Shown here is a 129-nucleotide RNA sequence from Otolemur garnettii, a member of the family "Small nucleolar RNA SNORA33". Rfam's curators write: ACA33 is a member of the H/ACA class of snoRNA that guide the sites of modification of uridines to pseudouridines. The match comes from Rfam's covariance-model search (91 bits). The organism belongs to Otolemur, within Eukaryota.

RNA sequence: AAUAGUAAUUGUCUUUGGAUUAAAAAAAUGUGUUUCUGCAGAAAUUUUAAAAAAGCUGGCAAUAGCCAGGCCAUGUUCUGAGCCUUAUGGACACUGAAGUCAUUAAGGUCCCUGAAAAUGGCCUUAACA
Numbered sequence: 001a002a003u004a005g006u007a008a009u010u011g012u013c014u015u016u017g018g019a020u021u022a023a024a025a026a027a028a029u030g031u032g033u034u035u036c037u038g039c040a041g042a043a044a045u046u047u048u049a050a051a052a053a054a055g056c057u058g059g060c061a062a063u064a065g066c067c068a069g070g071c072c073a074u075g076u077u078c079u080g081a082g083c084c085u086u087a088u089g090g091a092c093a094c095u096g097a098a099g100u101c102a103u104u105a106a107g108g109u110c111c112c113u114g115a116a117a118a119u120g121g122c123c124u125u126a127a128c129a
Base pairs, nucleotide, nucleotide: 003058004057005056014042015041016040017039070122071121072120073119082109083108084107085106086105087104090101091100092099
By type it is an H/ACA-box small nucleolar RNA.